[Rfam]
RNA sequence: UGCCAGCCUAGGGUAGCUCCCGAAUUAGCGGUAUCCUCACCGCUUGGCUGGUAAAUUUAACGAGGG
Numbered sequence: 001u002g003c004c005a006g007c008c009u010a011g012g013g014u015a016g017c018u019c020c021c022g023a024a025u026u027a028g029c030g031g032u033a034u035c036c037u038c039a040c041c042g043c044u045u046g047g048c049u050g051g052u053a054a055a056u057u058u059a060a061c062g063a064g065g066g
Stems, first nucleotide, its partner, number of pairs: 001053008011021003027044005034066005
RNA: int-alpA RNA